[Rfam]
RNA sequence: UCCGAACGUCAUGCUGAGCUUGUCGAAGCAUCUCUACCGCUUCGGUUGGGCCGUUCAACGAAGCGGUAGAGAUGCUUCGACAAGCUCAGCAUGACGUUCUGUUAAAUUCCCAAACACGUUUUAAAAAAAGAAUAGCUCAGUUUAAAUGCCUGAAUUAUUCUU
Numbered sequence: 001u002c003c004g005a006a007c008g009u010c011a012u013g014c015u016g017a018g019c020u021u022g023u024c025g026a027a028g029c030a031u032c033u034c035u036a037c038c039g040c041u042u043c044g045g046u047u048g049g050g051c052c053g054u055u056c057a058a059c060g061a062a063g064c065g066g067u068a069g070a071g072a073u074g075c076u077u078c079g080a081c082a083a084g085c086u087c088a089g090c091a092u093g094a095c096g097u098u099c100u101g102u103u104a105a106a107u108u109c110c111c112a113a114a115c116a117c118g119u120u121u122u123a124a125a126a127a128a129a130g131a132a133u134a135g136c137u138c139a140g141u142u143u144a145a146a147u148g149c150c151u152g153a154a155u156u157a158u159u160c161u162u
Stems, first nucleotide, its partner, number of pairs: 001116001007096007015088013029074005101111001132158004137153004142148001
RNA: Aggregatibacter sRNA 41
Organism: Hymenobacter sedentarius